Rfam assigns this 78-nucleotide sequence from Microctonus hyperodae to the family "mir-971 microRNA precursor family".
RNA sequence: CGUGCGGUUCACUCUAAGUUCGAAUACCGAGCCCUGUUCAUAAACAGCUUGGUGUUCUACCUUACAGUGACUCGAACG
Numbered sequence: 001c002g003u004g005c006g007g008u009u010c011a012c013u014c015u016a017a018g019u020u021c022g023a024a025u026a027c028c029g030a031g032c033c034c035u036g037u038u039c040a041u042a043a044a045c046a047g048c049u050u051g052g053u054g055u056u057c058u059a060c061c062u063u064a065c066a067g068u069g070a071c072u073c074g075a076a077c078g
Base pairs, nucleotide, nucleotide: 006073007072009070010069011068012067013066015064016063017062025054026053027052028051029050030049031048032047

The source organism's lineage runs through Eukaryota, Allotriocarida, Hexapoda, Ichneumonoidea and Microctonus.